Shown here is a 208-nucleotide RNA from Vibrio viridaestus, a member of the family "GcvB RNA". A search with the family's covariance model found it, with a score of 88 bits. For this family Rfam cites "The gcvB gene encodes a small untranslated RNA involved in expression of the dipeptide and oligopeptide transport systems in Escherichia coli" (Urbanowski et al., Mol Microbiol, 2000). NCBI's taxonomy places the organism under Bacteria, Pseudomonadati, Gammaproteobacteria, Vibrionales, Vibrio. About the family: The gcvB gene encodes a small untranslated RNA involved in expression of the dipeptide and oligopeptide transport systems in Escherichia coli. Included several unknown homologues in alignment (Bateman A pers obs). It base-pairs with SorC. This interaction triggers the degradation of GcvB by RNase E, alleviating the GcvB-mediated mRNA repression of other amino acid-related transport and metabolic genes.
RNA sequence: GCAAAACAGGCCUUAACAGUUUGAUUCUCCUUAGAAUCAUCGAGUCUUGUGUUGCGAUGUUGUGUUUGCAAACUCGUAUUUCGAGUUCGGUAGGAAACUACCAAAACUUUUUGCGCAGAAAACCUGCACAAAUCUAUACUUCCUGUAUUUUAUUUUUUGACCUGUCUGUCAAAUUUCGACACCGCCUGAUUAGGCGGUGUUUUUUUAU
Numbered sequence: 001g002c003a004a005a006a007c008a009g010g011c012c013u014u015a016a017c018a019g020u021u022u023g024a025u026u027c028u029c030c031u032u033a034g035a036a037u038c039a040u041c042g043a044g045u046c047u048u049g050u051g052u053u054g055c056g057a058u059g060u061u062g063u064g065u066u067u068g069c070a071a072a073c074u075c076g077u078a079u080u081u082c083g084a085g086u087u088c089g090g091u092a093g094g095a096a097a098c099u100a101c102c103a104a105a106a107c108u109u110u111u112u113g114c115g116c117a118g119a120a121a122a123c124c125u126g127c128a129c130a131a132a133u134c135u136a137u138a139c140u141u142c143c144u145g146u147a148u149u150u151u152a153u154u155u156u157u158u159g160a161c162c163u164g165u166c167u168g169u170c171a172a173a174u175u176u177c178g179a180c181a182c183c184g185c186c187u188g189a190u191u192a193g194g195c196g197g198u199g200u201u202u203u204u205u206u207a208u
Stems, first nucleotide, its partner, number of pairs: 004047001006045002012042001019041001022039007072086005090127005147175001149173003178201008